[Rfam]
Nucleotides: 097
Stems, first nucleotide, its partner, number of pairs: 001062004064093003072087005
Number, partner (000 for none) and nucleotide at each position: 001062c002061u003060c004059g005000c006000c007000g008000c009000c010000g011000g012000a013000c014000c015000g016000a017000a018000g019000g020000u021000c022000g023000a024000g025000u026000c027000g028000a029000c030000g031000u032000c033000a034000c035000g036000u037000c038000g039000a040000c041000c042000g043000c044000a045000c046000c047000g048000c049000c050000g051000g052000a053000c054000c055000g056000g057000g058000a059004c060003g061002a062001g063000a064093c065092g066091a067000a068000a069000u070000g071000u072087g073086g074085c075084c076083g077000c078000a079000u080000g081000c082000a083076c084075g085074g086073c087072u088000g089000a090000a091066u092065c093064g094000c095000a096000a097000a

Annotation
Rfam assigns this 97-nucleotide RNA sequence to the family "eL15-Euryarchaeota ribosomal protein leader". Pairs were carried over by alignment from the consensus structure, which is taken from published work. Rfam's curators put it in the seed alignment.